This 73-nucleotide RNA from Hyaloperonospora arabidopsidis belongs to the Rfam family "Mitochondrion-encoded tmRNA". The base pairs follow the family's consensus structure. The family is grouped with related families in Rfam's "tRNA clan". For this family Rfam cites "A second eukaryotic group with mitochondrion-encoded tmRNA: in silico identification and experimental confirmation" (Hafez et al., RNA Biol, 2013). The source organism's lineage runs through Eukaryota, Sar, Stramenopiles, Peronosporaceae and Hyaloperonospora arabidopsidis. It is one of the family's seed sequences.

RNA sequence: AAAAUGGACCCAUAGGCAGUUUUUGGUAUUUCCUUUUUAAUAUUAAUGGGAAUAAUAAUAGUGUUGACAUUUU
Numbered sequence: 001a002a003a004a005u006g007g008a009c010c011c012a013u014a015g016g017c018a019g020u021u022u023u024u025g026g027u028a029u030u031u032c033c034u035u036u037u038u039a040a041u042a043u044u045a046a047u048g049g050g051a052a053u054a055a056u057a058a059u060a061g062u063g064u065u066g067a068c069a070u071u072u073u
Stems, first nucleotide, its partner, number of pairs: 001073006010026003014022002027054007